[Rfam]
RNA sequence: GCUGCCGGCUGCUCUGUCGCGGUUGCCGGGUACGCCCGGCAGGUGAGGAAAGUCCGGACAACGUAGAGCGCCACGCCACCUAACGGGUGGGCUUCGGCUUACGCCGGGGACAGAAAGUGCCACAGAAAGCUAUACCGCCUAUACCGUAGCUGUUGGCAGGUGGGCAAGCCCGCCUUCGCCGAGGCUUCGGUGGGCAAGGGUGAAAACGUGCGGUAAGAGCGCACGCUCUGCUUUGGCAACAAAGCGGAGGGGUAAACCUCGUGGGUUGAAAUGUCACGUACAUCCCGAUCGGGCAUACGCCUGGCUGAGUUGCUCGCUCAGCUCACUCCGGUGAUUCGGGAGGGGUAGACAGCUCGACCCUGCUCGUGAGGGCAGGGCUAGAUAAAUGACAGAGGUCCCGGUUUGACCGGGAUACAGAAUCCGGCUUACAGGCUUGCAGCAAAA
Numbered sequence: 001g002c003u004g005c006c007g008g009c010u011g012c013u014c015u016g017u018c019g020c021g022g023u024u025g026c027c028g029g030g031u032a033c034g035c036c037c038g039g040c041a042g043g044u045g046a047g048g049a050a051a052g053u054c055c056g057g058a059c060a061a062c063g064u065a066g067a068g069c070g071c072c073a074c075g076c077c078a079c080c081u082a083a084c085g086g087g088u089g090g091g092c093u094u095c096g097g098c099u100u101a102c103g104c105c106g107g108g109g110a111c112a113g114a115a116a117g118u119g120c121c122a123c124a125g126a127a128a129g130c131u132a133u134a135c136c137g138c139c140u141a142u143a144c145c146g147u148a149g150c151u152g153u154u155g156g157c158a159g160g161u162g163g164g165c166a167a168g169c170c171c172g173c174c175u176u177c178g179c180c181g182a183g184g185c186u187u188c189g190g191u192g193g194g195c196a197a198g199g200g201u202g203a204a205a206a207c208g209u210g211c212g213g214u215a216a217g218a219g220c221g222c223a224c225g226c227u228c229u230g231c232u233u234u235g236g237c238a239a240c241a242a243a244g245c246g247g248a249g250g251g252g253u254a255a256a257c258c259u260c261g262u263g264g265g266u267u268g269a270a271a272u273g274u275c276a277c278g279u280a281c282a283u284c285c286c287g288a289u290c291g292g293g294c295a296u297a298c299g300c301c302u303g304g305c306u307g308a309g310u311u312g313c314u315c316g317c318u319c320a321g322c323u324c325a326c327u328c329c330g331g332u333g334a335u336u337c338g339g340g341a342g343g344g345g346u347a348g349a350c351a352g353c354u355c356g357a358c359c360c361u362g363c364u365c366g367u368g369a370g371g372g373c374a375g376g377g378c379u380a381g382a383u384a385a386a387u388g389a390c391a392g393a394g395g396u397c398c399c400g401g402u403u404u405g406a407c408c409g410g411g412a413u414a415c416a417g418a419a420u421c422c423g424g425c426u427u428a429c430a431g432g433c434u435u436g437c438a439g440c441a442a443a444a
Base pairs, nucleotide, nucleotide: 001440002439003438004437005436007434008433009432010431011429012394013393014392015391016390017389018388020045021044023042024041025040026039027038028037050427051426052425054424055423056422057421058420059268060267061266062265068328071264072263073262074261075260076090077089078088079087080086091111092109093108094107095106096105097104098103112259113258117257118256119253120252121251135199136198137195138194139193142192143191144190145189146188207225208224209223210222211221212220227248228247229246230245231244232243233242234241235240272351273350274349275348283341284340285339286338287337323334324333325332326331358377359376360375361374362373363372364371365370

Description:
A member of the RNA family "Bacterial RNase P class A" from Phaeodactylibacter xiamenensis, 444 nucleotides long. Lineage of the source: Bacteria > Pseudomonadati > Bacteroidota > Saprospirales > Phaeodactylibacter. The match comes from Rfam's covariance-model search (229 bits). It is annotated as a ribozyme.